The record is a 78-nucleotide RNA from Castor canadensis, which matches "mir-207 microRNA precursor family" in Rfam. The literature on the family includes a 2003 paper in RNA by Lagos-Quintana et al., "New microRNAs from mouse and human". The base pairs follow the family's consensus structure, which was predicted with RNAalifold. Taxonomically the source falls in Castor (Eukaryota, Bilateria, Euarchontoglires, Rodentia).
RNA sequence: AGGCCGGGGUGAGGGGCUGCGGGAGGAGCCGGGCGGAAGCUGCGGCUUUCACUUCUCCUGACUCCCCUCCCUCUCUUU
Numbered sequence: 001a002g003g004c005c006g007g008g009g010u011g012a013g014g015g016g017c018u019g020c021g022g023g024a025g026g027a028g029c030c031g032g033g034c035g036g037a038a039g040c041u042g043c044g045g046c047u048u049u050c051a052c053u054u055c056u057c058c059u060g061a062c063u064c065c066c067c068u069c070c071c072u073c074u075c076u077u078u
Base pairs, nucleotide, nucleotide: 002076003075006073007072008071009070011069012068013067014066015065016064020060021059022058023057024056025055026054027053028052032047033046034045036043